Background
The family of this 270-nucleotide sequence from Takifugu flavidus is "isrG Hfq binding RNA". The base pairs follow the family's consensus structure, which was predicted with RNAalifold.
RNA sequence: AGGAUGCUGCUGCUGCAGCUGUAGCUGCUGCUACUGUAGCUGCUGCUACUGUAGCUGCUGCUGCUACUGUAGCUGCUGCUGCUGUAGCUGCUACUGUAGCUGCUACUGUAGCUGCUGCUGUAGCUGCUGCUACUGUAGCUGCUACUGUAGCUGCUGCUGUAGCUGCUGCUGUAGCUGCUGCUACUGUAGCUGCUACUGUAGCUGCUACUGUAGCUGCUGCUACUGUAGCUGCUGCAGCAGCUGUAGCUGCUACUGUAGCUGCUGCUGUAG
Numbered sequence: 001a002g003g004a005u006g007c008u009g010c011u012g013c014u015g016c017a018g019c020u021g022u023a024g025c026u027g028c029u030g031c032u033a034c035u036g037u038a039g040c041u042g043c044u045g046c047u048a049c050u051g052u053a054g055c056u057g058c059u060g061c062u063g064c065u066a067c068u069g070u071a072g073c074u075g076c077u078g079c080u081g082c083u084g085u086a087g088c089u090g091c092u093a094c095u096g097u098a099g100c101u102g103c104u105a106c107u108g109u110a111g112c113u114g115c116u117g118c119u120g121u122a123g124c125u126g127c128u129g130c131u132a133c134u135g136u137a138g139c140u141g142c143u144a145c146u147g148u149a150g151c152u153g154c155u156g157c158u159g160u161a162g163c164u165g166c167u168g169c170u171g172u173a174g175c176u177g178c179u180g181c182u183a184c185u186g187u188a189g190c191u192g193c194u195a196c197u198g199u200a201g202c203u204g205c206u207a208c209u210g211u212a213g214c215u216g217c218u219g220c221u222a223c224u225g226u227a228g229c230u231g232c233u234g235c236a237g238c239a240g241c242u243g244u245a246g247c248u249g250c251u252a253c254u255g256u257a258g259c260u261g262c263u264g265c266u267g268u269a270g
Stems, first nucleotide, its partner, number of pairs: 006262002009259002012256002017251003023248004027232002030229005037222004042217002060076002063073004078115002081112001085108003090103002117211002120208003126205002129202005136195004141190005147154002159184002165178002168175002237244002